Rfam assigns this 35-nucleotide RNA from Physeter macrocephalus to the family "Iron response element I". Gene Ontology term of the family: response to iron ion. The organism belongs to Physeter, within Eukaryota. Rfam classes the family as a cis-regulatory element. The literature on the family includes a 1987 paper in Science by Hentze et al., "Identification of the iron-responsive element for the translational regulation of human ferritin mRNA".

RNA sequence: CUGUCUCUUGCUUCAGCAGUGUUUGGGUGGAACAC
Numbered sequence: 001c002u003g004u005c006u007c008u009u010g011c012u013u014c015a016g017c018a019g020u021g022u023u024u025g026g027g028u029g030g031a032a033c034a035c
Stems, first nucleotide, its partner, number of pairs: 002034003006031003010028001012027005017021001